[Rfam]
RNA sequence: UUGCCUUAAACUAAGGAGUAAGGAAAACAAAGCGAACUGGUGGGAGCCGGUCGUAGCAUCUAACAACAUGAUGCAAUUAUUUUUGGAGGGGUGAUAGGCUGGCCAUGUGUUGACGCUGCUUACUUUUGCAGAACUCACACAUGCAGGCCUCCCUUACCC
Numbered sequence: 001u002u003g004c005c006u007u008a009a010a011c012u013a014a015g016g017a018g019u020a021a022g023g024a025a026a027a028c029a030a031a032g033c034g035a036a037c038u039g040g041u042g043g044g045a046g047c048c049g050g051u052c053g054u055a056g057c058a059u060c061u062a063a064c065a066a067c068a069u070g071a072u073g074c075a076a077u078u079a080u081u082u083u084u085g086g087a088g089g090g091g092u093g094a095u096a097g098g099c100u101g102g103c104c105a106u107g108u109g110u111u112g113a114c115g116c117u118g119c120u121u122a123c124u125u126u127u128g129c130a131g132a133a134c135u136c137a138c139a140c141a142u143g144c145a146g147g148c149c150u151c152c153c154u155u156a157c158c159c
Stems, first nucleotide, its partner, number of pairs: 004023005032054003036051005056074004089159005096154003101149002104143002107140004116131004
Dot-bracket structure: ...(((((..........)))))........(((.(((((......)))))))).((((...........))))..............(((((..(((..((.((.((((.....((((........)))).....)))).))....))..))))))))
Rfam assigns this 159-nucleotide sequence from Medicago truncatula to the family "U12 minor spliceosomal RNA". Rfam links the family to the GO terms mRNA branch site recognition, U12 snRNP and pre-mRNA branch point binding. A reference for the family is Otake et al. (2002), "The divergent U12-type spliceosome is required for pre-mRNA splicing and is essential for development in Drosophila", Mol Cell. The match comes from Rfam's covariance-model search (87 bits). Pairs were carried over by alignment from the consensus structure. Taxonomically the source falls in Medicago (Eukaryota, Mesangiospermae, Pentapetalae, Fabaceae).